[Rfam]
RNA sequence: AGCAGAGUAGGAUUUUGUGCGUUAAGUGUCAUCGGAACGGGGAGUUGUCCGGUGAACGAAAAGUUUAUCUUGCGGUACAAAGUUCGCAUCCCGCUGCU
Numbered sequence: 001a002g003c004a005g006a007g008u009a010g011g012a013u014u015u016u017g018u019g020c021g022u023u024a025a026g027u028g029u030c031a032u033c034g035g036a037a038c039g040g041g042g043a044g045u046u047g048u049c050c051g052g053u054g055a056a057c058g059a060a061a062a063g064u065u066u067a068u069c070u071u072g073c074g075g076u077a078c079a080a081a082g083u084u085c086g087c088a089u090c091c092c093g094c095u096g097c098u
Stems, first nucleotide, its partner, number of pairs: 001098005010085010020074003026057002029055008040091003044087001061071003
Shown here is a 98-nucleotide sequence from Anaerocolumna cellulosilytica, a member of the family "THF (Tetrahydrofolate) riboswitch aptamer".
Tetrahydrofolate (THF) riboswitch was first reported for Ames et al. as an RNA motif in 5' untranslated (5'-UTR)regions of folate transport and biosynthesis genes in Firmicutes genomes.
Pairs were carried over by alignment from the consensus structure, which is taken from published work.
Taxonomically the source falls in Anaerocolumna (Bacteria, Bacillati, Bacillota, Lachnospiraceae).
It scores 95 bits against the family's covariance model.
Gene Ontology term of the family: tetrahydrofolate metabolic process.